RNA sequence: UUGUUUGCAUAUGUGGCAUAAUCAAGAUUCACGUGAAAAGUUGCAAAUUGGUUAUAUAAUUGAUGAAAUUAAUGGCUGGCUAUUUGAAACUCACGAGAAUCUUGAUGAUGCUGCAUCAGCAAUAAA
Numbered sequence: 001u002u003g004u005u006u007g008c009a010u011a012u013g014u015g016g017c018a019u020a021a022u023c024a025a026g027a028u029u030c031a032c033g034u035g036a037a038a039a040g041u042u043g044c045a046a047a048u049u050g051g052u053u054a055u056a057u058a059a060u061u062g063a064u065g066a067a068a069u070u071a072a073u074g075g076c077u078g079g080c081u082a083u084u085u086g087a088a089a090c091u092c093a094c095g096a097g098a099a100u101c102u103u104g105a106u107g108a109u110g111c112u113g114c115a116u117c118a119g120c121a122a123u124a125a126a
Base pairs, nucleotide, nucleotide: 011116012115013114014113015112016111017110018109019108021106022105023104024103025102026101027100028099029098030097032095033094034093035092036091
RNA: mir-172 microRNA precursor family
Organism: Solanum lycopersicum